[Rfam]
RNA: c-di-AMP riboswitch aptamer (ydaO/yuaA leader)
RNA sequence: AGUGUGAACGAGCCGAAUCCCGGCCGCGCCGGGAACGGGGGACCCAUCACCUGGGGUGCAUCCUUCCACAGCGAAGGACGGCGACUUCCGACGCCGAACCCGUCAGCUAACCCCGUAGGCGUUCGGAGGAGCCUCU
Numbered sequence: 001a002g003u004g005u006g007a008a009c010g011a012g013c014c015g016a017a018u019c020c021c022g023g024c025c026g027c028g029c030c031g032g033g034a035a036c037g038g039g040g041g042a043c044c045c046a047u048c049a050c051c052u053g054g055g056g057u058g059c060a061u062c063c064u065u066c067c068a069c070a071g072c073g074a075a076g077g078a079c080g081g082c083g084a085c086u087u088c089c090g091a092c093g094c095c096g097a098a099c100c101c102g103u104c105a106g107c108u109a110a111c112c113c114c115g116u117a118g119g120c121g122u123u124c125g126g127a128g129g130a131g132c133c134u135c136u
Base pairs, nucleotide, nucleotide: 012120013119014118018034019033020032021031022030035116036115037114038113039112040111045053046052054101055100056099062077063076064075065074080095081094082093083092